Shown here is an 82-nucleotide RNA from Arminella tubonensis, a member of the family "ZMP/ZTP riboswitch aptamer (pfl RNA motif)".
RNA sequence: CGGGCCUCGCGUGACCGGCGACAAGGGAUGGGUAUCCAUCGGGGAGCGCGGAGGAUGAUUGCCGCGCGCCGAGGCAACCCUU
Numbered sequence: 001c002g003g004g005c006c007u008c009g010c011g012u013g014a015c016c017g018g019c020g021a022c023a024a025g026g027g028a029u030g031g032g033u034a035u036c037c038a039u040c041g042g043g044g045a046g047c048g049c050g051g052a053g054g055a056u057g058a059u060u061g062c063c064g065c066g067c068g069c070c071g072a073g074g075c076a077a078c079c080c081u082u
Stems, first nucleotide, its partner, number of pairs: 005053001007051006015043002017070004028039004059077005
Dot-bracket structure: ....(.((((((..(([[[[.......((((....))))..))..)))))).).....(((((...]]]]..))))).....
Record summary: Taxonomically the source falls in Arminella (Bacteria, Pseudomonadati, Hyphomicrobiales, Rhizobiaceae).